Histone 3' UTR stem-loop: a 46-nucleotide RNA sequence from Nyctereutes procyonoides.
For this family Rfam cites "The sequence of the stem and flanking sequences at the 3' end of histone mRNA are critical determinants for the binding of the stem-loop binding protein" (Williams and Marzluff, Nucleic Acids Res, 1995).
The family's RNA type in Rfam is cis-regulatory element.

RNA sequence: CCAAAGGCUCUUUUCAGAGCCAUCUACACUCGCAGAGAAAGCAGCU
Numbered sequence: 001c002c003a004a005a006g007g008c009u010c011u012u013u014u015c016a017g018a019g020c021c022a023u024c025u026a027c028a029c030u031c032g033c034a035g036a037g038a039a040a041g042c043a044g045c046u
Stems, first nucleotide, its partner, number of pairs: 006021006